[Rfam]
RNA: Flavo-1 RNA
RNA sequence: CCCUAGCCCUGAUGGGAACGGCAUCCUGUGGCGCUGGGGUUCAGCGACACAGAUACAGUGGACAGCAGGAUUAGCU
Numbered sequence: 001c002c003c004u005a006g007c008c009c010u011g012a013u014g015g016g017a018a019c020g021g022c023a024u025c026c027u028g029u030g031g032c033g034c035u036g037g038g039g040u041u042c043a044g045c046g047a048c049a050c051a052g053a054u055a056c057a058g059u060g061g062a063c064a065g066c067a068g069g070a071u072u073a074g075c076u
Stems, first nucleotide, its partner, number of pairs: 009068003013064002018059002023054003028050003032046004